Shown here is a 75-nucleotide RNA sequence from Crocodylus porosus, a member of the family "Mammalian CPEB3 ribozyme". Lineage of the source: Eukaryota > Gnathostomata > Teleostomi > Archelosauria > Crocodylus. Gene Ontology term of the family: RNA nuclease activity.
RNA sequence: AAUUGUAAGCUUGAGGCCAUAGCAGUAGUGCUCAUGAUGUGGCCUGUCAGAUUCCAAUGACCUGCAAAUUCUGAU
Numbered sequence: 001a002a003u004u005g006u007a008a009g010c011u012u013g014a015g016g017c018c019a020u021a022g023c024a025g026u027a028g029u030g031c032u033c034a035u036g037a038u039g040u041g042g043c044c045u046g047u048c049a050g051a052u053u054c055c056a057a058u059g060a061c062c063u064g065c066a067a068a069u070u071c072u073g074a075u
Stems, first nucleotide, its partner, number of pairs: 015044004021075001023073003027069001028040003048064003052060001054059001